Record summary: Shown here is a 113-nucleotide sequence from Physcomitrium patens, a member of the family "MIR533 microRNA precursor family". NCBI's taxonomy places the organism under Eukaryota, Embryophyta, Bryopsida, Funariidae, Physcomitrium.
RNA sequence: GGGGCAGUAGCAUGGAGAGCUGUUCAGACUCUGAGAGAGGGGUGUGGAAAACAUGUACUGUUGUAUCGACACUCGUCGCUCACAGUCUGCACAGCUCUCUGUGUUGCUCCCUC
Numbered sequence: 001g002g003g004g005c006a007g008u009a010g011c012a013u014g015g016a017g018a019g020c021u022g023u024u025c026a027g028a029c030u031c032u033g034a035g036a037g038a039g040g041g042g043u044g045u046g047g048a049a050a051a052c053a054u055g056u057a058c059u060g061u062u063g064u065a066u067c068g069a070c071a072c073u074c075g076u077c078g079c080u081c082a083c084a085g086u087c088u089g090c091a092c093a094g095c096u097c098u099c100u101g102u103g104u105u106g107c108u109c110c111c112u113c
Stems, first nucleotide, its partner, number of pairs: 001113004006108002009105015025089006032082004037077001